Notes:
MIR2593 microRNA precursor family: a 115-nucleotide RNA from Medicago truncatula. Pairs were carried over by alignment from the consensus structure, which was predicted with RNAalifold. A search with the family's covariance model found it, with a score of 101 bits.
[Rfam]
RNA sequence: AUGUAAGCAACUUUUCACUUUUUUAGAUUCAUUUAAUAAAUAUGUAUGUGGUCUACAUUACAGACCACGUACAUCAUUUAUUGAAUGAACCUAAAAAGUGAAAAGUUACUUACAU
Numbered sequence: 001a002u003g004u005a006a007g008c009a010a011c012u013u014u015u016c017a018c019u020u021u022u023u024u025a026g027a028u029u030c031a032u033u034u035a036a037u038a039a040a041u042a043u044g045u046a047u048g049u050g051g052u053c054u055a056c057a058u059u060a061c062a063g064a065c066c067a068c069g070u071a072c073a074u075c076a077u078u079u080a081u082u083g084a085a086u087g088a089a090c091c092u093a094a095a096a097a098g099u100g101a102a103a104a105g106u107u108a109c110u111u112a113c114a115u
Base pairs, nucleotide, nucleotide: 002114003113004112005111006110007109009107010106011105012104013103015101016100017099019098020097021096022095023094024093025092026091028089029088030087031086032085033084034083035082036081037080038079039078040077041076042074043073044072049067050066051065052064
Its family is annotated with RISC complex and miRNA-mediated post-transcriptional gene silencing in the Gene Ontology.